[Rfam]
RNA sequence: UUAUGAGAUAGAGGUUGCAUUAGGCGAAGAGUAUCUUUUUUGAAGUAUAGGGCUAAUGAGAAAAAGAGAAAGGCGUCGAUGCCGAAAGAAAAAGAGAGCCUAUCUCGAUUUUUCUUGGGGGUAUGUUGAAGAAGCGUAUCACUGUCCUUUUUAGGAUGAGCUAUCCAUAUA
Number, nucleotide and partner (000 for none) at each position: 001u000002u000003a000004u000005g000006a000007g165008a164009u163010a162011g161012a000013g000014g000015u000016u000017g082018c081019a080020u079021u078022a000023g077024g076025c075026g074027a000028a000029g000030a000031g000032u000033a000034u067035c066036u065037u064038u063039u062040u061041u060042g000043a000044a000045g000046u000047a000048u000049a000050g000051g000052g000053c000054u000055a000056a000057u000058g000059a000060g041061a040062a039063a038064a037065a036066g035067a034068g000069a000070a000071a000072g000073g000074c026075g025076u024077c023078g021079a020080u019081g018082c017083c000084g000085a000086a116087a115088g114089a113090a112091a111092a110093a109094g000095a000096g106097a105098g000099c000100c000101u000102a000103u000104c000105u097106c096107g000108a000109u093110u092111u091112u090113u089114c088115u087116u086117g143118g142119g000120g140121g139122u138123a137124u136125g135126u134127u133128g000129a000130a000131g000132a000133a127134g126135c125136g124137u123138a122139u121140c120141a000142c118143u117144g000145u156146c155147c154148u153149u000150u000151u000152u000153a148154g147155g146156a145157u000158g000159a000160g000161c011162u010163a009164u008165c007166c000167a000168u000169a000170u000171a000
RNA: Lysine riboswitch aptamer
Organism: Catellicoccus marimammalium